[Rfam]
RNA: Alphacoronavirus 3'UTR
RNA sequence: ACUCUGUUGCUUGAGUCAAUCUGUUGCGCUAUUCACCCCAUAUCUGUACUUUUCAGAAUGGACAAGGUGACCUACUUAUACUAAAAUGUAAGCCUGUAUUUAAGCAGUAUAAGCAAUACUUAAAUAUAUUACUGCCCUUAGAUCAAAGCUAUAUGCAUUAGUACCUCUAUGUUCUGGAGUAAUCAAAGAUCCGCUUAGACGAGCCUAUAUGGAAGAGCUAGAACAUAUGUGCUACAUGCUAUAGUUAGUAGUUGUAGAUGGGUGUGGUUUUGAUAGGGAUUCAC
Numbered sequence: 001a002c003u004c005u006g007u008u009g010c011u012u013g014a015g016u017c018a019a020u021c022u023g024u025u026g027c028g029c030u031a032u033u034c035a036c037c038c039c040a041u042a043u044c045u046g047u048a049c050u051u052u053u054c055a056g057a058a059u060g061g062a063c064a065a066g067g068u069g070a071c072c073u074a075c076u077u078a079u080a081c082u083a084a085a086a087u088g089u090a091a092g093c094c095u096g097u098a099u100u101u102a103a104g105c106a107g108u109a110u111a112a113g114c115a116a117u118a119c120u121u122a123a124a125u126a127u128a129u130u131a132c133u134g135c136c137c138u139u140a141g142a143u144c145a146a147a148g149c150u151a152u153a154u155g156c157a158u159u160a161g162u163a164c165c166u167c168u169a170u171g172u173u174c175u176g177g178a179g180u181a182a183u184c185a186a187a188g189a190u191c192c193g194c195u196u197a198g199a200c201g202a203g204c205c206u207a208u209a210u211g212g213a214a215g216a217g218c219u220a221g222a223a224c225a226u227a228u229g230u231g232c233u234a235c236a237u238g239c240u241a242u243a244g245u246u247a248g249u250a251g252u253u254g255u256a257g258a259u260g261g262g263u264g265u266g267g268u269u270u271u272g273a274u275a276g277g278g279a280u281u282c283a284c
Base pairs, nucleotide, nucleotide: 075092076091077090078089079088096127097126098125099124100123101122102121103120104119106117131268132267133266134265135264141253142252143251148245149244150243151242152241159234160233161232162231163230168227169226170225171224173222174221175220176219177218194203195202204212205211